[Rfam]
RNA sequence: AACAUCCAAAACGACGAAAGCCCUACCUCUCUUCCAUCCUUGCGGCUCCGUAGACCGCGCCAGUGUGAAUCAGAAAUUCAAAAGAGGC
Numbered sequence: 001a002a003c004a005u006c007c008a009a010a011a012c013g014a015c016g017a018a019a020g021c022c023c024u025a026c027c028u029c030u031c032u033u034c035c036a037u038c039c040u041u042g043c044g045g046c047u048c049c050g051u052a053g054a055c056c057g058c059g060c061c062a063g064u065g066u067g068a069a070u071c072a073g074a075a076a077u078u079c080a081a082a083a084g085a086g087g088c
Base pairs, nucleotide, nucleotide: 035067036066039063040062041059042058043057044056045055047053
RNA: BsrC